[Rfam]
RNA sequence: GUGUUUUAAUGAUGGUCUGACUCUAAACCCCUCAGUGAAUGAGCAGACUUGAGGCUUAACAU
Dot-bracket structure: (((((........((((((.(((.....(.(...).)...)))))))))........)))))

This 62-nucleotide RNA from Silurus meridionalis belongs to the Rfam family "Selenocysteine insertion sequence 1". For this family Rfam cites "A novel RNA structural motif in the selenocysteine insertion element of eukaryotic selenoprotein mRNAs" (Walczak et al., RNA, 1996). NCBI's taxonomy places the organism under Eukaryota, Opisthokonta, Craniata, Otophysi, Silurus. The family's consensus secondary structure is taken from published work. A search with the family's covariance model found it, with a score of 38 bits.